[Rfam]
RNA sequence: ACACUUGACUCGGGGUGUCCGCCGCCGUGCGCCGGACUGAGAUUUCACCCGUAUGACCUGAUCUGGAUAAUGCCAGCGUAGGGAAGUCACGGCCUCUUGUC
Numbered sequence: 001a002c003a004c005u006u007g008a009c010u011c012g013g014g015g016u017g018u019c020c021g022c023c024g025c026c027g028u029g030c031g032c033c034g035g036a037c038u039g040a041g042a043u044u045u046c047a048c049c050c051g052u053a054u055g056a057c058c059u060g061a062u063c064u065g066g067a068u069a070a071u072g073c074c075a076g077c078g079u080a081g082g083g084a085a086g087u088c089a090c091g092g093c094c095u096c097u098u099g100u101c
Stems, first nucleotide, its partner, number of pairs: 006089005011051004017037005057082004063076004
Notes:
TPP riboswitch aptamer (THI element): a 101-nucleotide sequence from Acerihabitans arboris. A search with the family's covariance model found it, with a score of 71 bits. Taxonomically the source falls in Acerihabitans (Bacteria, Pseudomonadati, Enterobacterales, Pectobacteriaceae). The family's consensus secondary structure is taken from published work.